The record is a 125-nucleotide RNA sequence from Aotus nancymaae, which matches "U4atac minor spliceosomal RNA" in Rfam. Lineage of the source: Eukaryota > Vertebrata > Eutheria > Boreoeutheria > Aotus. It scores 93 bits against the family's covariance model. Pairs were carried over by alignment from the consensus structure, which is taken from published work.

RNA sequence: ACACACAUUUUCUUGGGGUUGCGCUACUGUCCAGUGAGCGCAUAGUGAGGGCAGUACCGCUAACCCUAAACAGCACACUCACAUCAGCUGAAGCUCUGCUUUACGUUGGUGCAAUUUUUGGAAAA
Numbered sequence: 001a002c003a004c005a006c007a008u009u010u011u012c013u014u015g016g017g018g019u020u021g022c023g024c025u026a027c028u029g030u031c032c033a034g035u036g037a038g039c040g041c042a043u044a045g046u047g048a049g050g051g052c053a054g055u056a057c058c059g060c061u062a063a064c065c066c067u068a069a070a071c072a073g074c075a076c077a078c079u080c081a082c083a084u085c086a087g088c089u090g091a092a093g094c095u096c097u098g099c100u101u102u103a104c105g106u107u108g109g110u111g112c113a114a115u116u117u118u119u120g121g122a123a124a125a
Stems, first nucleotide, its partner, number of pairs: 005019002008016002021060003026055007038046002082111005089103006